[Rfam]
RNA sequence: AUAAUGAUACUUCAAUAGUUUAAGCCGGCUCAUCUUAAUAAGAGGCGGAGGUGAGAUUCCUAUGU
Numbered sequence: 001a002u003a004a005u006g007a008u009a010c011u012u013c014a015a016u017a018g019u020u021u022a023a024g025c026c027g028g029c030u031c032a033u034c035u036u037a038a039u040a041a042g043a044g045g046c047g048g049a050g051g052u053g054a055g056a057u058u059c060c061u062a063u064g065u
Stems, first nucleotide, its partner, number of pairs: 012062001013024001025048003029044003049061003

The record is a 65-nucleotide RNA sequence from Peptostreptococcus russellii, which matches "pemK RNA" in Rfam. It is annotated as a cis-regulatory element. The base pairs follow the family's consensus structure, which is taken from published work.